The record is a 108-nucleotide RNA sequence from Arachis hypogaea, which matches "Plant small nucleolar RNA R71" in Rfam.
RNA sequence: AAGCAUGUCAGAAGGACAUUUUUUUGUCAACUGCUUGUAUCUUUCCCAAGCUUCAUAGAGGGAUUCACCAUCCUUUUGCUUGAAGGUCUGAACAUCCACUCUAAGCUU
Numbered sequence: 001a002a003g004c005a006u007g008u009c010a011g012a013a014g015g016a017c018a019u020u021u022u023u024u025u026g027u028c029a030a031c032u033g034c035u036u037g038u039a040u041c042u043u044u045c046c047c048a049a050g051c052u053u054c055a056u057a058g059a060g061g062g063a064u065u066c067a068c069c070a071u072c073c074u075u076u077u078g079c080u081u082g083a084a085g086g087u088c089u090g091a092a093c094a095u096c097c098a099c100u101c102u103a104a105g106c107u108u
Base pairs, nucleotide, nucleotide: 001108003106004105006103007102058075059074061072
A search with the family's covariance model found it, with a score of 44 bits.
A reference for the family is Brown et al. (2003), "Plant snoRNAs: functional evolution and new modes of gene expression", Trends Plant Sci.
The organism belongs to Arachis, within Eukaryota.